[Rfam]
RNA sequence: AUACUUACCUGGGGUAGGGGAGACACCAGGAUCAGGCAGCUGGUUUUCCCAAGGCGGGAUUCAUCCUCUGUACUCUGGGUGUCCUGACCCCUGGAUUUCCCAAAAUGAAGGAAAUUUGGCUGCAUACUUCAUAGUAACAGAGGACUGCUCUAGCAGGAGCCUUGG
Numbered sequence: 001a002u003a004c005u006u007a008c009c010u011g012g013g014g015u016a017g018g019g020g021a022g023a024c025a026c027c028a029g030g031a032u033c034a035g036g037c038a039g040c041u042g043g044u045u046u047u048c049c050c051a052a053g054g055c056g057g058g059a060u061u062c063a064u065c066c067u068c069u070g071u072a073c074u075c076u077g078g079g080u081g082u083c084c085u086g087a088c089c090c091c092u093g094g095a096u097u098u099c100c101c102a103a104a105a106u107g108a109a110g111g112a113a114a115u116u117u118g119g120c121u122g123c124a125u126a127c128u129u130c131a132u133a134g135u136a137a138c139a140g141a142g143g144a145c146u147g148c149u150c151u152a153g154c155a156g157g158a159g160c161c162u163u164g165g
Stems, first nucleotide, its partner, number of pairs: 014123004018050006025044005051092001053090002056088001058085001062081005094117002096114003100110001140163004146155003
The record is a 165-nucleotide sequence from Donacobius atricapilla, which matches "U1 spliceosomal RNA" in Rfam. Rfam links the family to the GO terms mRNA 5'-splice site recognition, U1 snRNP and pre-mRNA 5'-splice site binding. The family's RNA type in Rfam is spliceosomal small nuclear RNA. U1 is a small nuclear RNA (snRNA) component of the spliceosome (involved in pre-mRNA splicing). Its 5' end forms complementary base pairs with the 5' splice junction, thus defining the 5' donor site of an intron. There are significant differences in sequence and secondary structure between metazoan and yeast U1 snRNAs, the latter being much longer (568 nucleotides as compared to 164 nucleotides in human).